[Rfam]
RNA sequence: GCUAACCCAAGCAACGCAAUCCCUACCUGCUAUUGCGUCCUUGCGGCCCUAUAGCCGCGCCAGCGUGAAUGAGUGUCCUCCGCAUCAU
Numbered sequence: 001g002c003u004a005a006c007c008c009a010a011g012c013a014a015c016g017c018a019a020u021c022c023c024u025a026c027c028u029g030c031u032a033u034u035g036c037g038u039c040c041u042u043g044c045g046g047c048c049c050u051a052u053a054g055c056c057g058c059g060c061c062a063g064c065g066u067g068a069a070u071g072a073g074u075g076u077c078c079u080c081c082g083c084a085u086c087a088u
Base pairs, nucleotide, nucleotide: 036067037066040063041062042059043058044057045056046055047054